[Rfam]
RNA sequence: ACAUUGCAAUCUGGUGGUGGGCUCGCUGAGGCGGCCUCGACCAAUCGUGUCCAAAGACGACGAUGAGCCGCCCGGAAAACACCAGGCGGCUUUUUU
Dot-bracket structure: ...........((((.(.((((.(((....)))))))).))))....((((....)))).....((((((((.((......)).))))))))....

Notes
Rfam assigns this 96-nucleotide sequence from Rhizobium metallidurans to the family "RcsR1 sRNA". Gene Ontology terms of the family: sRNA-mediated gene silencing and negative regulation of translation in response to stress. The source organism's lineage runs through Bacteria, Pseudomonadota, Hyphomicrobiales, Rhizobiaceae and Rhizobium. The literature on the family includes a 2015 paper in RNA Biol by Baumgardt et al., "The stress-related, rhizobial small RNA RcsR1 destabilizes the autoinducer synthase encoding mRNA sinI in Sinorhizobium meliloti". Rfam describes the family as follows. RcsR1 (rhizobial cold and salinity stress riboregulator 1) trans-acting sRNA, formerly known as SmelC587, is a stress-related riboregulator, conserved in Sinorhizobium, Rhizobium and Agrobacterium.